Small Cajal body specific RNA 6: a 267-nucleotide RNA from Anguilla anguilla. Lineage of the source: Eukaryota > Chordata > Elopocephala > Anguillidae > Anguilla. U88 is small Cajal body specific RNA (scaRNA). scaRNAs are a novel class of small nuclear RNAs which localise to the Cajal bodies.

RNA sequence: GGUCUGUGAUGUACUGUAAAAGGUCUGAUGCUUAAGUUUCCCCCAGCUUCCCUUCAUCUCCCAGAGGCCCCUGCUCUGUUCCCAGCAUGCUCUAGGUGUGUUAUGUUGGGUGCGGGGGUCUCUGACAGAUAGGAUGACCUCUCAACCUGUGUAUCUUGAAGAAAGAGGUCACAGUGAUGACGUACAUCCAACACUUUCAUUUUCCAAGGAGUUAUCGGGCUGUGGGGCAGGGACAAGCGCAUGAUCUCAAGUUUUCAAGCUGAGACC
Numbered sequence: 001g002g003u004c005u006g007u008g009a010u011g012u013a014c015u016g017u018a019a020a021a022g023g024u025c026u027g028a029u030g031c032u033u034a035a036g037u038u039u040c041c042c043c044c045a046g047c048u049u050c051c052c053u054u055c056a057u058c059u060c061c062c063a064g065a066g067g068c069c070c071c072u073g074c075u076c077u078g079u080u081c082c083c084a085g086c087a088u089g090c091u092c093u094a095g096g097u098g099u100g101u102u103a104u105g106u107u108g109g110g111u112g113c114g115g116g117g118g119u120c121u122c123u124g125a126c127a128g129a130u131a132g133g134a135u136g137a138c139c140u141c142u143c144a145a146c147c148u149g150u151g152u153a154u155c156u157u158g159a160a161g162a163a164a165g166a167g168g169u170c171a172c173a174g175u176g177a178u179g180a181c182g183u184a185c186a187u188c189c190a191a192c193a194c195u196u197u198c199a200u201u202u203u204c205c206a207a208g209g210a211g212u213u214a215u216c217g218g219g220c221u222g223u224g225g226g227g228c229a230g231g232g233a234c235a236a237g238c239g240c241a242u243g244a245u246c247u248c249a250a251g252u253u254u255u256c257a258a259g260c261u262g263a264g265a266c267c
Stems, first nucleotide, its partner, number of pairs: 001267004035247002038244002040226003044222004058211004062124007081110009090100001132189005137183002148173004153169005